[Rfam]
Nucleotides: 071
Base pairs, nucleotide, nucleotide: 001070002069003068004067005066006065007064010024011023012022013021026042027041028040029039030038047063048062049061050060051059
Number, partner (000 for none) and nucleotide at each position: 001070a002069g003068g004067g005066g006065u007064a008000u009000a010024g011023u012022u013021c014000a015000a016000u017000g018000g019000c020000a021013g022012a023011g024010c025000a026042a027041c028040g029039g030038u031000c032000u033000c034000c035000a036000a037000a038030a039029c040028c041027g042026u043000a044000a045000a046000u047063c048062u049061a050060g051059g052000u053000u054000c055000g056000a057000a058000u059051c060050c061049u062048a063047g064007u065006a066005c067004c068003c069002c070001u071000g
Background
tRNA: a 71-nucleotide RNA sequence from Proteiniclasticum ruminis. Pairs were carried over by alignment from the consensus structure, which is taken from published work. By type it is a transfer RNA. The organism belongs to Proteiniclasticum, within Bacteria.